[Rfam]
RNA sequence: AACGGACAUAAUUAAUACGCUCGUAUACUCUCUGAAUAUGGCAGAGUGUUUCUACCGGAAACCGUAAAUUUCCGACUAUGAGUGAAUUAGUAUUCUAU
Numbered sequence: 001a002a003c004g005g006a007c008a009u010a011a012u013u014a015a016u017a018c019g020c021u022c023g024u025a026u027a028c029u030c031u032c033u034g035a036a037u038a039u040g041g042c043a044g045a046g047u048g049u050u051u052c053u054a055c056c057g058g059a060a061a062c063c064g065u066a067a068a069u070u071u072c073c074g075a076c077u078a079u080g081a082g083u084g085a086a087u088u089a090g091u092a093u094u095c096u097a098u
Stems, first nucleotide, its partner, number of pairs: 018084008030046005056074006
Overview:
This 98-nucleotide RNA sequence from Clostridium polyendosporum belongs to the Rfam family "Purine riboswitch aptamer". Its family is annotated with purine nucleobase biosynthetic process in the Gene Ontology.